[Rfam]
The family of this 100-nucleotide sequence is "L4-Archaeoglobi ribosomal protein leades". For this family Rfam cites "Discovery of 20 novel ribosomal leader candidates in bacteria and archaea" (Eckert and Weinberg, BMC Microbiol, 2020).
RNA sequence: CUGAUGACCGCGUUCGGGUCACUUGCGGACUGCAACACCCGAUCUCACUCGGCGUGCCGAAAGAAAUGGAGGUCGCCGAGGGGGAGCGCGUCACCGUCAG
Numbered sequence: 001c002u003g004a005u006g007a008c009c010g011c012g013u014u015c016g017g018g019u020c021a022c023u024u025g026c027g028g029a030c031u032g033c034a035a036c037a038c039c040c041g042a043u044c045u046c047a048c049u050c051g052g053c054g055u056g057c058c059g060a061a062a063g064a065a066a067u068g069g070a071g072g073u074c075g076c077c078g079a080g081g082g083g084g085a086g087c088g089c090g091u092c093a094c095c096g097u098c099a100g
Stems, first nucleotide, its partner, number of pairs: 001100005009090005015041004023035005043085004048080007

Rfam's curators put it in the seed alignment.